The record is a 369-nucleotide sequence from Propionispora vibrioides, which matches "Bacterial RNase P class B" in Rfam. The family's consensus secondary structure is taken from published work. The literature on the family includes a 1998 paper in Annu Rev Biochem by Frank and Pace, "Ribonuclease P: unity and diversity in a tRNA processing ribozyme". Clan: RNaseP clan. It scores 212 bits against the family's covariance model. Its family is annotated with ribonuclease P activity, tRNA processing and dimeric ribonuclease P complex in the Gene Ontology.

[Rfam]
RNA sequence: GGCGCCGGCUCAUCGCGCAAAGGCAGGCGUGUUGCAGAGGAAAGUCCGGACAGGCACGGGCUGCGAUGCCCGUAGUGAUUGCGCGUGACCCAAUAAGUCACGGAAGGAGACAUACCCUCCUUACGGCGGUGAAAUCCACUCCGGCUGUUUACAGGCCGGAGCGGAAAAUAACCUGAAAGUGCCACAGAAACGAUUCGUUCCGGCGACGGAACGGUGCAAGGGUAAACCCCGCAAGCCUGCAACUCAAAUUAUGGUAGAGGAACCCUAAGACGGGAAUGCGAACUGAAUUAGGGCGCAGCCGGAGGCUGCGAGAUAAAUGUUGUCCGAGGGAGCCGCAAGGUCUUCCUGAACAAAAUCCGGCUUACAGUA
Numbered sequence: 001g002g003c004g005c006c007g008g009c010u011c012a013u014c015g016c017g018c019a020a021a022g023g024c025a026g027g028c029g030u031g032u033u034g035c036a037g038a039g040g041a042a043a044g045u046c047c048g049g050a051c052a053g054g055c056a057c058g059g060g061c062u063g064c065g066a067u068g069c070c071c072g073u074a075g076u077g078a079u080u081g082c083g084c085g086u087g088a089c090c091c092a093a094u095a096a097g098u099c100a101c102g103g104a105a106g107g108a109g110a111c112a113u114a115c116c117c118u119c120c121u122u123a124c125g126g127c128g129g130u131g132a133a134a135u136c137c138a139c140u141c142c143g144g145c146u147g148u149u150u151a152c153a154g155g156c157c158g159g160a161g162c163g164g165a166a167a168a169u170a171a172c173c174u175g176a177a178a179g180u181g182c183c184a185c186a187g188a189a190a191c192g193a194u195u196c197g198u199u200c201c202g203g204c205g206a207c208g209g210a211a212c213g214g215u216g217c218a219a220g221g222g223u224a225a226a227c228c229c230c231g232c233a234a235g236c237c238u239g240c241a242a243c244u245c246a247a248a249u250u251a252u253g254g255u256a257g258a259g260g261a262a263c264c265c266u267a268a269g270a271c272g273g274g275a276a277u278g279c280g281a282a283c284u285g286a287a288u289u290a291g292g293g294c295g296c297a298g299c300c301g302g303a304g305g306c307u308g309c310g311a312g313a314u315a316a317a318u319g320u321u322g323u324c325c326g327a328g329g330g331a332g333c334c335g336c337a338a339g340g341u342c343u344u345c346c347u348g349a350a351c352a353a354a355a356u357c358c359g360g361c362u363u364a365c366a367g368u369a
Stems, first nucleotide, its partner, number of pairs: 001321003005037001042363003046360005051239005056073006079234005084102006103124001104122006125229002128173003136164002139161001143157003179227002181223003196213007243259003263293006294310006327347005334340001